[Rfam]
RNA sequence: CCGUUCUUGUGUUAUUCGCUAGAUCUUUUCAUGGCCUAGCGAGCGUCAAACAGAACGCAAACUGAAGCAACGAAUCACUCCACAAUGGUGGGUCUACUUUACCAGGACUGCAUCAUUACUAAAGGAUUGCUACAGUU
Numbered sequence: 001c002c003g004u005u006c007u008u009g010u011g012u013u014a015u016u017c018g019c020u021a022g023a024u025c026u027u028u029u030c031a032u033g034g035c036c037u038a039g040c041g042a043g044c045g046u047c048a049a050a051c052a053g054a055a056c057g058c059a060a061a062c063u064g065a066a067g068c069a070a071c072g073a074a075u076c077a078c079u080c081c082a083c084a085a086u087g088g089u090g091g092g093u094c095u096a097c098u099u100u101a102c103c104a105g106g107a108c109u110g111c112a113u114c115a116u117u118a119c120u121a122a123a124g125g126a127u128u129g130c131u132a133c134a135g136u137u
Stems, first nucleotide, its partner, number of pairs: 002057006010048002016042007084117005091109004
RNA: Small nucleolar RNA psi18S-1377